Rfam assigns this 75-nucleotide RNA from Vanilla planifolia to the family "Plastid-ycf2 5UTR RNA". Rfam describes the family as follows. Plastid ycf2 is a non-coding RNA (ncRNA) recognised in plastids. It was found in the prime untranslated region (5UTR) of ycf2 genes, it presents a tRNA-like motif which suggests it can be involved in mRNA maturation, particularly involved in defining the precise 5' end of the transcript. The base pairs follow the family's consensus structure, which was predicted with LocARNA. NCBI's taxonomy places the organism under Eukaryota, Euphyllophyta, Petrosaviidae, Orchidaceae, Vanilla. It is annotated as a cis-regulatory element.

[Rfam]
RNA sequence: GUGCAUCCAAUAGGAAUUGAACCUAUGAAUUUGUCAAUUAUGAAUUGGGUGCCUUAACUAUUUAGCCAUGGAUGC
Number, nucleotide and partner (000 for none) at each position: 001g000002u000003g075004c074005a073006u072007c071008c070009a000010a026011u025012a024013g023014g022015a000016a000017u000018u000019g000020a000021a000022c014023c013024u012025a011026u010027g000028a000029a000030u000031u000032u000033g000034u000035c000036a000037a000038u000039u000040a069041u068042g067043a000044a000045u065046u064047g063048g062049g061050u060051g059052c000053c000054u000055u000056a000057a000058c000059u051060a050061u049062u048063u047064a046065g045066c000067c042068a041069u040070g008071g007072a006073u005074g004075c003